[Rfam]
RNA sequence: UUAAAGCUCCAUCAACAAAUGGAUAAGACUUAUACGAGUUUUUGAAAAUAAGGGAGCAAUAACCACUUUCUUGUUCUAGCAAGAGUGUUGGUAUUGCUCAUUU
Numbered sequence: 001u002u003a004a005a006g007c008u009c010c011a012u013c014a015a016c017a018a019a020u021g022g023a024u025a026a027g028a029c030u031u032a033u034a035c036g037a038g039u040u041u042u043u044g045a046a047a048a049u050a051a052g053g054g055a056g057c058a059a060u061a062a063c064c065a066c067u068u069u070c071u072u073g074u075u076c077u078a079g080c081a082a083g084a085g086u087g088u089u090g091g092u093a094u095u096g097c098u099c100a101u102u103u
Stems, first nucleotide, its partner, number of pairs: 008023005050103003054099008065088002068085005
RNA: Plastid-psbA-1 3UTR RNA